[Rfam]
Nucleotides: 361
Stems, first nucleotide, its partner, number of pairs: 001361004009356008018347003035059005044049001060103005080095001082093002085090001104108001116340007123332002127141003144179008152169001156165003182327004187257003192254002194250005201245003207239002212234005219226002258276006277281001287314001297313006
Number, partner (000 for none) and nucleotide at each position: 001361c002360g003359a004358g005000c006000g007000a008000a009356c010355c011354u012353u013352c014351g015350u016349u017000a018347a019346g020345g021000a022000a023000c024000u025000c026000g027000g028000c029000a030000a031000a032000a033000u034000g035059a036058c037057c038056c039055c040000g041000u042000a043000a044049c045000u046000u047000c048000g049044g050000g051000a052000g053000a054000a055039g056038g057037g058036g059035u060103a061102c062101c063100c064099c065000g066000c067000c068000a069000g070000g071000g072000u073000g074000a075000c076000a077000g078000u079000a080095g081000a082093g083092c084000a085090u086000g087000c088000u089000g090085g091000a092083g093082c094000c095080c096000g097000a098000g099064g100063g101062g102061g103060u104108c105000g106000c107000a108104g109000a110000g111000a112000a113000g114000u115000g116340g117339c118338c119337c120336a121335a122334g123332c124331g125000a126000c127141u128140g129139u130000u131000u132000a133000c134000c135000a136000a137000a138000a139129a140128c141127a142000c143000a144179g145178g146177u147176g148175c149174c150173u151172g152169c153000u154000a155000a156165a157164g158163c159000g160000u161000a162000a163158g164157c165156u166000g167000a168000a169152g170000u171000a172151u173150a174149g175148g176147u177146g178145c179144u180000g181000a182327c183326g184325c185324c186000u187257g188256c189255c190000c191000g192254g193253u194250g195249c196248u197247g198246g199000a200000a201245g202244g203243u204000u205000a206000a207239g208238g209000g210000g211000a212234a213233g214232g215231g216230u217000u218000a219226g220225c221000g222000a223000a224000a225220g226219c227000g228000a229000a230216g231215c232214u233213c234212u235000g236000a237000a238208c239207c240000g241000a242000a243203g244202c245201c246198c247197c248196a249195g250194u251000a252000a253193a254192c255189g256188g257187c258276g259275g260274c261273c262272g263271u264000a265000a266000c267000u268000a269000u270000a271263a272262c273261g274260g275259u276258c277281c278000u279000a280000a281277g282000g283000u284000a285000g286000c287314g288000a289000a290000a291000u292000u293000c294000c295000u296000u297313g298312u299311c300310g301309g302308g303000u304000a305000a306000g307000u308302u309301c310300c311299g312298a313297c314287c315000c316000g317000c318000a319000c320000g321000a322000a323000a324185g325184g326183c327182g328000u329000a330000a331124c332123g333000a334122u335121u336120u337119g338118g339117g340116c341000g342000c343000u344000g345020u346019c347018u348000c349016a350015a351014c352013g353012a354011a355010g356009g357000g358004c359003u360002c361001g
A member of the RNA family "Bacterial large subunit ribosomal RNA" from Neomoorella thermoacetica, 361 nucleotides of a longer RNA. It scores 2970 bits against the family's covariance model.